RNA sequence: AGCUGAUCCCAGUGCACUGGUGUUUGCAAUUAACUGAUCACAGCUAAUUAUAGAUUUCUUUGUUCCUUCACUCCCACUGCUUUACUCGACUAGCCUAAA
Numbered sequence: 001a002g003c004u005g006a007u008c009c010c011a012g013u014g015c016a017c018u019g020g021u022g023u024u025u026g027c028a029a030u031u032a033a034c035u036g037a038u039c040a041c042a043g044c045u046a047a048u049u050a051u052a053g054a055u056u057u058c059u060u061u062g063u064u065c066c067u068u069c070a071c072u073c074c075c076a077c078u079g080c081u082u083u084a085c086u087c088g089a090c091u092a093g094c095c096u097a098a099a
Base pairs, nucleotide, nucleotide: 002094003093004092005091007089008088011086014083016078018076019075020074022073028064029063030062032060033059

Shown here is a 99-nucleotide RNA from Panthera tigris, a member of the family "Y RNA". About the family: Y RNAs are components of the Ro ribonucleoprotein particle (Ro RNP), in association with Ro60 and La proteins. The Y RNAs and Ro60 and La proteins are well conserved, but the function of the Ro RNP is not known. In humans the RNA component can be one of four small RNAs -- hY1, hY3, hY4 and hY5. These small RNAs are predicted to fold into a conserved secondary structure containing three stem structures. The largest of the four, hY1, contains an additional hairpin. This family includes a significant number of annotated pseudogenes and the model is expected to discriminate poorly between real and Y RNA related pseudogenes. The family's RNA type in Rfam is non-coding RNA gene. Pairs were carried over by alignment from the consensus structure, which is taken from published work.